[Rfam]
RNA: Plastid-psbA-1 3UTR RNA
Organism: Hevea brasiliensis
Nucleotides: 122
Stems, first nucleotide, its partner, number of pairs: 008023005069122002072119009084107001088103004
Number, partner (000 for none) and nucleotide at each position: 001000u002000c003000g004000a005000a006000a007000u008023u009022c010021c011020a012019u013000c014000u015000a016000c017000a018000a019012a020011u021010g022009g023008a024000u025000a026000a027000g028000a029000c030000u031000u032000c033000g034000a035000u036000u037000u038000u039000a040000g041000u042000a043000u044000g045000u046000g047000u048000g049000a050000g051000a052000g053000u054000u055000u056000u057000u058000g059000a060000a061000a062000a063000c064000u065000a066000a067000a068000a069122a070121a071000a072119g073118g074117a075116g076115c077114a078113a079112u080111a081000c082000c083000a084107a085000u086000c087000c088103u089102c090101u091100u092000g093000a094000u095000a096000g097000a098000a099000c100091a101090a102089g103088a104000a105000a106000u107084u108000g109000g110000a111080u112079a113078u114077u115076g116075c117074u118073c119072u120000g121070u122069u